[Rfam]
RNA: Bacterial small signal recognition particle RNA
RNA sequence: GAAAGGCCUUGAGACAAUGUUGCGCUUACGAAUCGUGUCAGAUUCGGAAGAAAGCAGCACUAAGUAGGAUGUGGCAUGUGUCUCUUGUUUUUUUGAU
Numbered sequence: 001g002a003a004a005g006g007c008c009u010u011g012a013g014a015c016a017a018u019g020u021u022g023c024g025c026u027u028a029c030g031a032a033u034c035g036u037g038u039c040a041g042a043u044u045c046g047g048a049a050g051a052a053a054g055c056a057g058c059a060c061u062a063a064g065u066a067g068g069a070u071g072u073g074g075c076a077u078g079u080g081u082c083u084c085u086u087g088u089u090u091u092u093u094u095g096a097u
Base pairs, nucleotide, nucleotide: 004091005090006089008087011084012083013082014081015078017077018076019075020074021073022072025068026067027066028065029064035060036059037058038057043052044051045050